[Rfam]
RNA sequence: AACCACACUAUCAAUGAAUGGAUUCACCCGUGAGAUGACGUGACUGUUUCACCUAGAAAGAAAACAUGGCAUCAUAUUACCAGCCAUCGCACAAAAUUAAUAGGGUGUCACGUUCUCAUCUUAGAUGGAACAACCAUGUCAUCUUACGGGUGAAUCCAUUCAUCGAUAGUGUGGUU
Numbered sequence: 001a002a003c004c005a006c007a008c009u010a011u012c013a014a015u016g017a018a019u020g021g022a023u024u025c026a027c028c029c030g031u032g033a034g035a036u037g038a039c040g041u042g043a044c045u046g047u048u049u050c051a052c053c054u055a056g057a058a059a060g061a062a063a064a065c066a067u068g069g070c071a072u073c074a075u076a077u078u079a080c081c082a083g084c085c086a087u088c089g090c091a092c093a094a095a096a097u098u099a100a101u102a103g104g105g106u107g108u109c110a111c112g113u114u115c116u117c118a119u120c121u122u123a124g125a126u127g128g129a130a131c132a133a134c135c136a137u138g139u140c141a142u143c144u145u146a147c148g149g150g151u152g153a154a155u156c157c158a159u160u161c162a163u164c165g166a167u168a169g170u171g172u173g174g175u176u
Stems, first nucleotide, its partner, number of pairs: 001176007009168004014163002017160003021156008030147004035142005041136002045132004051126001054123002058119001063114003069108005075102005086097002